[Rfam]
RNA: Lysine riboswitch aptamer
Organism: Lactobacillus corticis
RNA sequence: AACAUUCGAAGAGGCGCGACUAAGAUUAGUAAAUGGAUUGUCUGCCUGCCAGGCGCGAGUUCAUUGAAAGGCGCGGUCGCCGAAGCCCUUGCCGUGGCAAGCAAGGAGCUGGGCUGUAGUUGAAGAAGCUGCAGACUGUCGUGGGACACAUGAGUCCACGGGGCGCUAUCGAUGUCA
Number, nucleotide and partner (000 for none) at each position: 001a000002a000003c000004a000005u000006u172007c171008g170009a169010a167011g166012a000013g000014g000015c000016g080017c079018g078019a077020c076021u075022a000023a000024g072025a000026u000027u000028a000029g000030u000031a000032a065033a064034u063035g062036g061037a060038u059039u058040g000041u000042c000043u000044g000045c000046c000047u000048g000049c000050c000051a000052g000053g000054c000055g000056c000057g000058a039059g038060u037061u036062c035063a034064u033065u032066g000067a000068a000069a000070g000071g000072c024073g000074c000075g021076g020077u019078c018079g017080c016081c000082g000083a000084a110085g109086c108087c106088c105089u104090u103091g102092c101093c000094g000095u000096g000097g000098c000099a000100a000101g092102c091103a090104a089105g088106g087107a000108g086109c085110u084111g137112g136113g000114c134115u133116g132117u131118a130119g129120u128121u127122g000123a000124a000125g000126a000127a121128g120129c119130u118131g117132c116133a115134g114135a000136c112137u111138g000139u161140c160141g159142u158143g157144g156145g155146a000147c000148a000149c000150a000151u000152g000153a000154g000155u145156c144157c143158a142159c141160g140161g139162g000163g000164c000165g000166c011167u010168a000169u009170c008171g007172a006173u000174g000175u000176c000177a000